RNA sequence: UACCCUACGGUCUCUCUCAGGUCCGCCGCAACUCCUGGGUUCCGUAGGGCGGCUGGUCCGAACGGACAGAGUGGCCUCUUCGACAUGCCGCUCGGACCAGCCAACCU
Numbered sequence: 001u002a003c004c005c006u007a008c009g010g011u012c013u014c015u016c017u018c019a020g021g022u023c024c025g026c027c028g029c030a031a032c033u034c035c036u037g038g039g040u041u042c043c044g045u046a047g048g049g050c051g052g053c054u055g056g057u058c059c060g061a062a063c064g065g066a067c068a069g070a071g072u073g074g075c076c077u078c079u080u081c082g083a084c085a086u087g088c089c090g091c092u093c094g095g096a097c098c099a100g101c102c103a104a105c106c107u
Stems, first nucleotide, its partner, number of pairs: 003049008016039006051102011

Shown here is a 107-nucleotide sequence from Paradevosia tibetensis, a member of the family "EcpR1".
Perviously named SmelC291, SmrC10, or Sra33. According to its overproduction phenotype it was renamed Elongated Cell Phenotype RNA1. Induced by stress,EcpR1 negatively regulates cell cycle master regulatory genes dnaA and gcrA at post-transcriptional level by base pairing between its strongly conserved GC-rich loop and the target mRNAs. It's regulation is hfq-independent but requires RNase E to regulate dnaA.
Its family is annotated with negative regulation of cell cycle, regulation of translation in response to stress and mRNA binding in the Gene Ontology.
Lineage of the source: Bacteria > Pseudomonadota > Hyphomicrobiales > Devosiaceae > Paradevosia.
By type it is a small RNA.
The family's consensus secondary structure was predicted with WAR.